[Rfam]
Nucleotides: 393
Stems, first nucleotide, its partner, number of pairs: 001389010011378001012344007020035006040376003044373005049211004060277001062207005067081005082096001083094004097202002102200002104196003119142002121138007150168006169191001170189008215301004225292006271285002274282001308327008
Number, partner (000 for none) and nucleotide at each position: 001389g002388c003387g004386g005385a006384g007383g008382g009381c010380c011378g012344g013343a014342u015341g016340g017339c018338c019000g020035c021034g022033g023032a024031c025030c026000g027000a028000a029000c030025g031024g032023u033022u034021c035020g036000a037000g038000g039000a040376a041375a042374g043000u044373c045372c046371g047370g048369a049211c050210u051209c052208c053000a054000u055000g056000a057000a058000g059000c060277g061000a062207c063206g064205g065204u066203g067081c068080c069079g070078g071077g072000u073000a074000a075000c076000g077071c078070c079069c080068g081067g082096g083094c084093g085092g086091g087000g088000a089000a090000a091086c092085c093084c094083g095000a096082c097202g098201g099000a100000a101000a102200g103199c104196g105195c106194c107000a108000c109000a110000g111000a112000g113000a114000a115000c116000a117000g118000a119142c120141c121138g122137c123136c124135g125134c126133g127132u128000c129000a130000c131000g132127g133126c134125g135124c136123g137122g138121c139000a140000a141120g142119g143000g144000u145000g146000a147000a148000a149000c150168g151167g152166u153165g154164g155163g156000g157000c158000a159000a160000g161000a162000g163155c164154c165153c166152a167151c168150c169191g170189c171188g172187g173186g174185g175184c176183c177182g178000g179000c180000a181000a182177c183176g184175g185174u186173u187172c188171c189170g190000g191169c192000a193000c194106g195105g196104c197000a198000a199103g200102c201098c202097c203066c204065a205064c206063c207062g208052g209051g210050a211049g212000c213000a214000a215301u216300g217299c218298c219000g220000a221000a222000u223000a224000g225292g226291a227290c228289c229288c230287c231000c232000a233000c234000g235000c236000g237000g238000g239000a240000c241000c242000g243000g244000u245000c246000c247000g248000g249000g250000c251000a252000a253000c254000c255000g256000g257000a258000g259000a260000c261000c262000g263000c264000c265000g266000c267000g268000g269000g270000g271285c272284c273000c274282g275000c276000u277060u278000c279000a280000g281000c282274c283000u284272g285271g286000a287230g288229g289228g290227g291226u292225c293000g294000g295000g296000u297000u298218g299217g300216c301215a302000g303000c304000a305000c306000g307000a308327g309326g310325c311324g312323c313322g314321c315320g316000g317000u318000g319000a320315c321314g322313c323312g324311c325310g326309u327308c328000c329000c330000a331000g332000a333000g334000g335000a336000a337000u338018g339017g340016c341015c342014a343013u344012c345000g346000a347000a348000g349000g350000g351000g352000g353000a354000a355000a356000c357000c358000c359000c360000g361000g362000a363000a364000c365000a366000g367000a368000a369048u370047c371046c372045g373044g374042c375041u376040u377000a378011c379000a380010g381009g382008c383007c384006c385005u386004c387003c388002g389001c390000g391000c392000g393000u

The record is a 393-nucleotide sequence from Jhaorihella thermophila, which matches "Bacterial RNase P class A" in Rfam. NCBI's taxonomy places the organism under Bacteria, Pseudomonadati, Rhodobacterales, Paracoccaceae, Jhaorihella. The family's consensus secondary structure is taken from published work. Its Rfam clan is "RNaseP clan".